This 73-nucleotide sequence from Strongylocentrotus purpuratus belongs to the Rfam family "Mammalian CPEB3 ribozyme". Pairs were carried over by alignment from the consensus structure, which is taken from published work. The match comes from Rfam's covariance-model search (61 bits).

[Rfam]
RNA sequence: UAUGCAUUGAAGGAGCCAAUGAAGGAGCGUUCACGUCGCGGUCCCUGUCAGAUGAAAAUCUGUGAAUCCUUCA
Numbered sequence: 001u002a003u004g005c006a007u008u009g010a011a012g013g014a015g016c017c018a019a020u021g022a023a024g025g026a027g028c029g030u031u032c033a034c035g036u037c038g039c040g041g042u043c044c045c046u047g048u049c050a051g052a053u054g055a056a057a058a059u060c061u062g063u064g065a066a067u068c069c070u071u072c073a
Stems, first nucleotide, its partner, number of pairs: 012045002015042003020073007027039003049062005
Dot-bracket structure: ...........[[.[[[..((((((((((.......)))]]].]]...(((((....)))))....)))))))